[Rfam]
RNA sequence: GGAAAAUUGAUCAUCGGCAAGAUAAGUUAUUUACUAAAUAAUAGAAUAUUAUUUCUGAGGAGUUCGAAUCUCCUAUUUUCCG
Dot-bracket structure: (((((((..(((........)))..(((((.......)))))...............(((((.......)))))))))))).

This 82-nucleotide sequence from Williopsis mrakii belongs to the Rfam family "tRNA". On this family, see Hou, Trends Biochem Sci 1993: "The tertiary structure of tRNA and the development of the genetic code". The source organism's lineage runs through Eukaryota, Dikarya, Saccharomycotina, Phaffomycetales and Williopsis.